[Rfam]
Nucleotides: 133
Stems, first nucleotide, its partner, number of pairs: 020054005026049003034044003086109010122133002
Number, partner (000 for none) and nucleotide at each position: 001000a002000u003000c004000c005000g006000a007000g008000u009000g010000c011000a012000c013000g014000g015000g016000c017000g018000u019000c020054u021053u022052c023051c024050u025000u026049c027048u028047c029000c030000g031000u032000g033000a034044a035043g036042c037000g038000a039000u040000a041000a042036g043035c044034u045000g046000a047028g048027a049026g050024a051023g052022g053021a054020a055000u056000u057000u058000u059000g060000c061000u062000a063000g064000u065000u066000g067000a068000a069000a070000a071000c072000u073000a074000a075000a076000u077000u078000c079000a080000a081000a082000c083000c084000g085000c086109u087108c088107c089106u090105g091104u092103u093102c094101g095100a096000u097000u098000c099000g100095u101094u102093g103092g104091g105090c106089a107088g108087g109086g110000a111000a112000u113000u114000u115000u116000u117000g118000g119000a120000a121000a122133u123132c124000c125000u126000u127000c128000u129000u130000u131000u132123g133122a